[Rfam]
The family of this 165-nucleotide RNA from Natronomonas aquatica is "Sense overlapping transcript RNA 0042 (sot)". Lineage of the source: Archaea > Methanobacteriota > Halobacteriales > Natronomonadaceae > Natronomonas. Pairs were carried over by alignment from the consensus structure, which was predicted with RNAfold. For this family Rfam cites "Sense overlapping transcripts in IS1341-type transposase genes are functional non-coding RNAs in archaea" (Gomes-Filho et al., RNA Biol, 2015).
RNA sequence: UUGUAUCCACAGUUAGAUAUUCAAUAGGAGUAACGGCUGUUUGGCACAGCCAUCGGUACGCCUGUUCGACAAAUCAACGGGGCAAAUAGCCCCACAAAAACAGGUCGUCUCGUAAACCACAAUAUCCCAACGGCGGUCAGGAAUCCUCUCGCUUCAGGGCGGGGU
Numbered sequence: 001u002u003g004u005a006u007c008c009a010c011a012g013u014u015a016g017a018u019a020u021u022c023a024a025u026a027g028g029a030g031u032a033a034c035g036g037c038u039g040u041u042u043g044g045c046a047c048a049g050c051c052a053u054c055g056g057u058a059c060g061c062c063u064g065u066u067c068g069a070c071a072a073a074u075c076a077a078c079g080g081g082g083c084a085a086a087u088a089g090c091c092c093c094a095c096a097a098a099a100a101c102a103g104g105u106c107g108u109c110u111c112g113u114a115a116a117c118c119a120c121a122a123u124a125u126c127c128c129a130a131c132g133g134c135g136g137u138c139a140g141g142a143a144u145c146c147u148c149u150c151g152c153u154u155c156a157g158g159g160c161g162g163g164g165u
Stems, first nucleotide, its partner, number of pairs: 001024002004019004009014001035051005054112003058108002061104006079093005125142003130137002145164004150159001152157001